[Rfam]
RNA: GcvB RNA
RNA sequence: GCAACACGAGCCUGAACGGCUUGAUUUCCUUGGAAAUCAAUUGGCUUCGUUGUUGCGAUGUUGUGUUUGCAAACUCGUAUUUCGAGUUAGGUAGAUUUCUACCAUGAUGUUUUGUCCACACUCCCUGUGACAAAACAGAUACUUCCUGUAUUUAUUUUUGACCUGUCUGUCAAAUUUGUUACACCGCCUUUUUAGGCGGUGUUUUUUUAU
Numbered sequence: 001g002c003a004a005c006a007c008g009a010g011c012c013u014g015a016a017c018g019g020c021u022u023g024a025u026u027u028c029c030u031u032g033g034a035a036a037u038c039a040a041u042u043g044g045c046u047u048c049g050u051u052g053u054u055g056c057g058a059u060g061u062u063g064u065g066u067u068u069g070c071a072a073a074c075u076c077g078u079a080u081u082u083c084g085a086g087u088u089a090g091g092u093a094g095a096u097u098u099c100u101a102c103c104a105u106g107a108u109g110u111u112u113u114g115u116c117c118a119c120a121c122u123c124c125c126u127g128u129g130a131c132a133a134a135a136c137a138g139a140u141a142c143u144u145c146c147u148g149u150a151u152u153u154a155u156u157u158u159u160g161a162c163c164u165g166u167c168u169g170u171c172a173a174a175u176u177u178g179u180u181a182c183a184c185c186g187c188c189u190u191u192u193u194a195g196g197c198g199g200u201g202u203u204u205u206u207u208u209a210u
Stems, first nucleotide, its partner, number of pairs: 009046004015042002021040008073087005089126003093122002150176001152174002181202007
Dot-bracket structure: ........((((..((....((((((((....))))))))))))))..........................(((((.....))))).(((.((..........................)).))).......................(.((...................)).)....(((((((........)))))))........